[Rfam]
RNA sequence: UUAGCACUUUCACAGGUCCUCCCCUGGGCAGUGGGGCCAGGAUUUGGUAGCUGGUGCUCAGAGAAAACCUUGUGUGAAUCCUUGCCCUGGUACUAUACCAGUGGCAGCUGUCACUCAGUGGGACAGAC
Number, nucleotide and partner (000 for none) at each position: 001u000002u000003a058004g057005c056006a055007c054008u053009u000010u000011c000012a000013c046014a045015g044016g000017u042018c041019c040020u039021c000022c036023c035024c034025u033026g000027g000028g000029c000030a000031g000032u000033g025034g024035g023036g022037c000038c000039a020040g019041g018042a017043u000044u015045u014046g013047g000048u000049a000050g000051c000052u000053g008054g007055u006056g005057c004058u003059c000060a000061g000062a000063g000064a000065a000066a000067a000068c122069c121070u118071u117072g116073u000074g000075u113076g112077a000078a111079u110080c000081c000082u107083u106084g105085c104086c103087c101088u100089g099090g098091u000092a000093c000094u000095a000096u000097a000098c090099c089100a088101g087102u000103g086104g085105c084106a083107g082108c000109u000110g079111u078112c076113a075114c000115u000116c072117a071118g070119u000120g000121g069122g068123a000124c000125a000126g000127a000128c000
RNA: Small nucleolar RNA SNORA30/SNORA37 family
Organism: Octodon degus